[Rfam]
RNA sequence: GCCCUUGCAAGAGCGCCGGGCGGGCCCUAGAUUAGCAAUGUCCCGCAAGGGGCUAUGGUGAUAAACGCGCACGGAAUAAGCGGAUCGGACCCGGGGGCGGUACCCGGCGGCUCCACCAGACAUCCCUCGUUGGGGGCGAAUGGGGCCGAAACAGGAUCGACGGACGUGUAAAGGUGUUUGCUUUCACUCGGCAGGAUGCCACCGUUAUCGGCUCAAAGCGUAUAGUUGCCAACGACAACCACGCUCCGGUGGCCGUUGCCGCGUAAGCGGUAGCCAAACCGAAAUCCAAGCCCAGUCCUCUAGCAAGGGCUGGCGGGGUUCGCAGGCACCUGGCAACAGAAGCCUGCACU
Numbered sequence: 001g002c003c004c005u006u007g008c009a010a011g012a013g014c015g016c017c018g019g020g021c022g023g024g025c026c027c028u029a030g031a032u033u034a035g036c037a038a039u040g041u042c043c044c045g046c047a048a049g050g051g052g053c054u055a056u057g058g059u060g061a062u063a064a065a066c067g068c069g070c071a072c073g074g075a076a077u078a079a080g081c082g083g084a085u086c087g088g089a090c091c092c093g094g095g096g097g098c099g100g101u102a103c104c105c106g107g108c109g110g111c112u113c114c115a116c117c118a119g120a121c122a123u124c125c126c127u128c129g130u131u132g133g134g135g136g137c138g139a140a141u142g143g144g145g146c147c148g149a150a151a152c153a154g155g156a157u158c159g160a161c162g163g164a165c166g167u168g169u170a171a172a173g174g175u176g177u178u179u180g181c182u183u184u185c186a187c188u189c190g191g192c193a194g195g196a197u198g199c200c201a202c203c204g205u206u207a208u209c210g211g212c213u214c215a216a217a218g219c220g221u222a223u224a225g226u227u228g229c230c231a232a233c234g235a236c237a238a239c240c241a242c243g244c245u246c247c248g249g250u251g252g253c254c255g256u257u258g259c260c261g262c263g264u265a266a267g268c269g270g271u272a273g274c275c276a277a278a279c280c281g282a283a284a285u286c287c288a289a290g291c292c293c294a295g296u297c298c299u300c301u302a303g304c305a306a307g308g309g310c311u312g313g314c315g316g317g318g319u320u321c322g323c324a325g326g327c328a329c330c331u332g333g334c335a336a337c338a339g340a341a342g343c344c345u346g347c348a349c350u
Stems, first nucleotide, its partner, number of pairs: 040053005057188005067181002069177004081166002085163003091107005108148007189204003195214002198212003316331004322347006

Rfam assigns this 350-nucleotide sequence from Halovulum marinum to the family "Alphaproteobacteria transfer-messenger RNA". Rfam classes the family as a non-coding RNA gene. The match comes from Rfam's covariance-model search (289 bits). Taxonomically the source falls in Halovulum (Bacteria, Pseudomonadati, Pseudomonadota, Alphaproteobacteria). Pairs were carried over by alignment from the consensus structure, which is taken from published work.